[Rfam]
RNA: L2-Alphaproteobacteria ribosomal protein leader
RNA sequence: GGGGACCUGCGGGGCCCUUCACAUCCGGGCCGACCUGGCCCGCACAAGCAGACGGAAGACAGAAA
Numbered sequence: 001g002g003g004g005a006c007c008u009g010c011g012g013g014g015c016c017c018u019u020c021a022c023a024u025c026c027g028g029g030c031c032g033a034c035c036u037g038g039c040c041c042g043c044a045c046a047a048g049c050a051g052a053c054g055g056a057a058g059a060c061a062g063a064a065a
Stems, first nucleotide, its partner, number of pairs: 001018004006014003024044001026042007